[Rfam]
RNA sequence: CAAAGACCAACGCCGAACCUUAGGCAAUGACAAUUCACCACGAAUGUCAGAACCGGGGGCCGGGGAACCAAAUAGCUUUCAUCUGGGGUUUAUCCCUCGCAAGAGCGUCUCCCAAGUUUUAGAUGGGCGACGUGGAGCGGGGGAGGGGCGUUUCCUUCUCUCAACCCGUCAGCUAACCCGGUAGGCCACAAGGAAGAUCUG
Numbered sequence: 001c002a003a004a005g006a007c008c009a010a011c012g013c014c015g016a017a018c019c020u021u022a023g024g025c026a027a028u029g030a031c032a033a034u035u036c037a038c039c040a041c042g043a044a045u046g047u048c049a050g051a052a053c054c055g056g057g058g059g060c061c062g063g064g065g066a067a068c069c070a071a072a073u074a075g076c077u078u079u080c081a082u083c084u085g086g087g088g089u090u091u092a093u094c095c096c097u098c099g100c101a102a103g104a105g106c107g108u109c110u111c112c113c114a115a116g117u118u119u120u121a122g123a124u125g126g127g128c129g130a131c132g133u134g135g136a137g138c139g140g141g142g143g144a145g146g147g148g149c150g151u152u153u154c155c156u157u158c159u160c161u162c163a164a165c166c167c168g169u170c171a172g173c174u175a176a177c178c179c180g181g182u183a184g185g186c187c188a189c190a191a192g193g194a195a196g197a198u199c200u201g
Stems, first nucleotide, its partner, number of pairs: 012186003018058003059182006069085002086167003094142004145161004
Shown here is a 201-nucleotide RNA from Corynebacterium alimapuense, a member of the family "c-di-AMP riboswitch aptamer (ydaO/yuaA leader)". The pairing is the family consensus, mapped onto this sequence. It scores 55 bits against the family's covariance model. Rfam links the family to the GO terms cyclic-di-AMP binding and regulation of gene expression. The organism belongs to Corynebacterium, within Bacteria.